[Rfam]
Rfam assigns this 213-nucleotide RNA sequence from Erysipelothrix sp. HDW6A to the family "T-box leader". It scores 132 bits against the family's covariance model.
RNA sequence: AUUACAUCGUUGAAAAAGAGAGUAGAUAUACUUUGGAUCUAAGCGAGCUAGGGUUGGUGGAAGCCUGGUGAUACCAAAUAUAUUGAACCGCACUUUGGAGAAAUUGAGUUGAACUCACAGUAGGCUCAGUCGCCAGCUAGCGUUAUAGCAUUGAGGGGUCUUGUCAUACAUACAAGGCAAUUAGAGUGGUACCGCGUUUAACACGUCUCUAGA
Numbered sequence: 001a002u003u004a005c006a007u008c009g010u011u012g013a014a015a016a017a018g019a020g021a022g023u024a025g026a027u028a029u030a031c032u033u034u035g036g037a038u039c040u041a042a043g044c045g046a047g048c049u050a051g052g053g054u055u056g057g058u059g060g061a062a063g064c065c066u067g068g069u070g071a072u073a074c075c076a077a078a079u080a081u082a083u084u085g086a087a088c089c090g091c092a093c094u095u096u097g098g099a100g101a102a103a104u105u106g107a108g109u110u111g112a113a114c115u116c117a118c119a120g121u122a123g124g125c126u127c128a129g130u131c132g133c134c135a136g137c138u139a140g141c142g143u144u145a146u147a148g149c150a151u152u153g154a155g156g157g158g159u160c161u162u163g164u165c166a167u168a169c170a171u172a173c174a175a176g177g178c179a180a181u182u183a184g185a186g187u188g189g190u191a192c193c194g195c196g197u198u199u200a201a202c203a204c205g206u207c208u209c210u211a212g213a
Stems, first nucleotide, its partner, number of pairs: 007101002015096004025084006037072002047069006104129007131142003158178007183210004194206004

A reference for the family is Grundy et al. (1994), "Interaction between the acceptor end of tRNA and the T box stimulates antitermination in the Bacillus subtilis tyrS gene: a new role for the discriminator base", J Bacteriol.
Taxonomically the source falls in Erysipelothrix (Bacteria, Bacillati, Erysipelotrichales, Erysipelotrichaceae).
Rfam classes the family as a cis-regulatory leader.